[Rfam]
RNA sequence: CAUACGAGUAGAAGCGGUCAGACUUAAUUUGAUGUUUUAAGCAACAUCAAGUCCGGGCAUUGCUCACAAC
Numbered sequence: 001c002a003u004a005c006g007a008g009u010a011g012a013a014g015c016g017g018u019c020a021g022a023c024u025u026a027a028u029u030u031g032a033u034g035u036u037u038u039a040a041g042c043a044a045c046a047u048c049a050a051g052u053c054c055g056g057g058c059a060u061u062g063c064u065c066a067c068a069a070c
Stems, first nucleotide, its partner, number of pairs: 006065005015055001018057002021053005027047001
RNA: Xanthine riboswitch aptamer (NMT1 RNA)
Organism: Marinomonas transparens